[Rfam]
RNA sequence: GCUGGGCUUAGCUACAUACCUCCACGUGGUGCCCAGUGGAAACAGUUCAAACUGGCUAAAUUGUAGUA
Numbered sequence: 001g002c003u004g005g006g007c008u009u010a011g012c013u014a015c016a017u018a019c020c021u022c023c024a025c026g027u028g029g030u031g032c033c034c035a036g037u038g039g040a041a042a043c044a045g046u047u048c049a050a051a052c053u054g055g056c057u058a059a060a061u062u063g064u065a066g067u068a
Stems, first nucleotide, its partner, number of pairs: 001037007018030003043054004
This 68-nucleotide RNA from Erpetoichthys calabaricus belongs to the Rfam family "HDV ribozyme from F. prausnitzii". Rfam 15.1 lists 3,803 matches to the family in 91 species. Pairs were carried over by alignment from the consensus structure, which is taken from published work. For this family Rfam cites "Widespread occurrence of self-cleaving ribozymes" (Webb et al., Science, 2009). It scores 44 bits against the family's covariance model.